[Rfam]
RNA sequence: UAGGGGUGUCAGGGUCAGGAGCCCCCCCCUGAACCCCGGGUAACCCUAACCGUUGGGGGGGCA
Number, nucleotide and partner (000 for none) at each position: 001u000002a000003g000004g000005g000006g000007u000008g041009u040010c039011a000012g036013g035014g034015u033016c031017a030018g029019g028020a000021g000022c061023c060024c059025c058026c056027c055028c019029c018030u017031g016032a000033a015034c014035c013036c012037c000038g000039g010040g009041u008042a000043a000044c000045c000046c000047u000048a000049a000050c000051c000052g000053u000054u000055g027056g026057g000058g025059g024060g023061g022062c000063a000
The family of this 63-nucleotide RNA sequence from Mustela putorius is "Gag/pol translational readthrough site". It scores 75 bits against the family's covariance model. The organism belongs to Mustela putorius, within Eukaryota. The base pairs follow the family's consensus structure, which is taken from published work. Rfam classes the family as a cis-regulatory element. Gene Ontology term of the family: viral translational readthrough.